Makes More Granules Regulator RNA (mmgR): a 72-nucleotide sequence from Pseudohoeflea suaedae. From the family's description: SuhB later renamed mmgR (makes more granules regulator) was a putative non-coding RNA found multiple times in the Agrobacterium tumefaciens genome and related alpha-proteobacteria. Other non-coding RNAs uncovered in the same analysis include: speF, ybhL, metA, and serC.Several studies inSinorhizobium meliloti showed that suhB element is indeed a non-coding RNA:firstly it was detected on Northern blot and called Sm8RNA, secondly in an RNAseq study referred to as SmelC689.The mutant phenotype's (strain lacking the small RNA) cytoplasm contains higher content of polyhydroxybutyrate (PBH)storage granules than wild type strain. The sRNA is required to limit the PBH intracellular accumulation when the nitrogen-fixing Sinorhizobium meliloti is under condition of surplus carbon in relation to nitrogen. It has been renamed to mmgR. Further study confirmed that mmgR fine-tunes the regulation of PBH storage.Northern blot confirmed the expression of the sRNA in other rhizobia species. Taxonomically the source falls in Pseudohoeflea (Bacteria, Pseudomonadati, Alphaproteobacteria, Rhizobiaceae). Rfam classes the family as a small RNA. It scores 65 bits against the family's covariance model.

RNA sequence: UGUGAAUGCCCUCCUUGGGCGUUUCCUCCCUAGACUUGACCGCGCUCCCGAGCGCGGUUUUUUUUGCACUUG
Numbered sequence: 001u002g003u004g005a006a007u008g009c010c011c012u013c014c015u016u017g018g019g020c021g022u023u024u025c026c027u028c029c030c031u032a033g034a035c036u037u038g039a040c041c042g043c044g045c046u047c048c049c050g051a052g053c054g055c056g057g058u059u060u061u062u063u064u065u066g067c068a069c070u071u072g
Base pairs, nucleotide, nucleotide: 008020009019010018011017040057041056042055043054044053045052046051